Nucleotides: 138
Stems, first nucleotide, its partner, number of pairs: 020052003024048001026047001028045001034042001082114003085110003089106005127138004
Number, partner (000 for none) and nucleotide at each position: 001000a002000a003000c004000u005000u006000u007000g008000c009000c010000c011000a012000g013000u014000g015000g016000u017000a018000a019000u020052a021051u022050c023000a024048u025000a026047a027000c028045c029000a030000g031000u032000g033000a034042g035000a036000u037000u038000u039000a040000u041000a042034c043000a044000a045028g046000u047026u048024g049000c050022g051021a052020u053000u054000a055000u056000u057000g058000c059000u060000a061000a062000c063000u064000g065000a066000a067000a068000a069000c070000u071000u072000c073000c074000u075000a076000a077000u078000a079000u080000c081000c082114g083113c084112c085110a086109u087108g088000a089106u090105g091104a092103c093102u094000u095000g096000a097000a098000a099000u100000a101000c102093a103092g104091u105090c106089a107000g108087c109086a110085u111000u112084g113083g114082c115000a116000a117000u118000u119000u120000u121000g122000g123000a124000u125000a126000g127138u128137c129136u130135c131000u132000a133000u134000g135130g136129a137128g138127a
Shown here is a 138-nucleotide RNA from Cercocebus atys, a member of the family "U4 spliceosomal RNA". From the family's description: U4 small nuclear RNA (U4 snRNA) is a component of the major U2-dependent spliceosome. By type it is a spliceosomal small nuclear RNA.